[Rfam]
RNA sequence: GGAAAUUUGAGAAGAUCUAACUCUAGUACGAGAGGACCGAGAUGGAUAUACCUCUGGUGUACCAGCUGUUAUGCCAAUAGCAUCGCUGGGUAGCUAUGUAUAGUUGGGAUAAUUGCUGAAAGCAUAUAAGCAAGAAACCCUCUUCAAAAAGAUUUCCCAAUUAAGGCCGUGGAAGACUACCACGUUGAUAGGCUAGGUGUGGAAGUAUGGUAACAUGCGAAGCUAACUAGUACUAAUAGCCUGAUUG
Dot-bracket structure: ((((((((..((((..(((.(((...............))).))).(((((...(((....(((((((((((....))))))..)))))....))).)))))...(((....(((((...........)))))....))).))))....))))))))...(..(((((((((.......)))))....((((((((..(.....(((((....)))))....)...))))).)))...)))).)...